Description: A member of the RNA family "Guanidine-II riboswitch aptamer (mini-ykkC)" from Vibrio campbellii, 47 nucleotides long. Rfam describes the family as follows. Simpler in structure and has fewer highly conserved nucleotide positions than the ykkC-yxkD leader. Despite this each of its two stem-loop structures directly bind free guanidine. The literature on the family includes a 2007 paper in Nucleic Acids Res by Weinberg et al., "Identification of 22 candidate structured RNAs in bacteria using the CMfinder comparative genomics pipeline". NCBI's taxonomy places the organism under Bacteria, Pseudomonadota, Gammaproteobacteria, Vibrio, Vibrio campbellii.

RNA sequence: AAGUGAGGACGACCUCACCGCUCUUAUCACUAUCGGGGACGACCCCA
Numbered sequence: 001a002a003g004u005g006a007g008g009a010c011g012a013c014c015u016c017a018c019c020g021c022u023c024u025u026a027u028c029a030c031u032a033u034c035g036g037g038g039a040c041g042a043c044c045c046c047a
Stems, first nucleotide, its partner, number of pairs: 003018006035046004